[Rfam]
RNA: SAM (S-adenosyl methionine) riboswitch aptamer
RNA sequence: GAUCAAGAGUUCCAGCAUUGAGCCCUGGCUUGUUGGACGGCAACCCUCUUCGUGGUGGGGUGCCCCAGGUGAAGAUCCGGCCGCCUCGCAAAAGCGUCGCGGCAAGCACCGAGC
Numbered sequence: 001g002a003u004c005a006a007g008a009g010u011u012c013c014a015g016c017a018u019u020g021a022g023c024c025c026u027g028g029c030u031u032g033u034u035g036g037a038c039g040g041c042a043a044c045c046c047u048c049u050u051c052g053u054g055g056u057g058g059g060g061u062g063c064c065c066c067a068g069g070u071g072a073a074g075a076u077c078c079g080g081c082c083g084c085c086u087c088g089c090a091a092a093a094g095c096g097u098c099g100c101g102g103c104a105a106g107c108a109c110c111g112a113g114c
Stems, first nucleotide, its partner, number of pairs: 001077004009038001011037006021030002039064003044060003048055002080103005087096003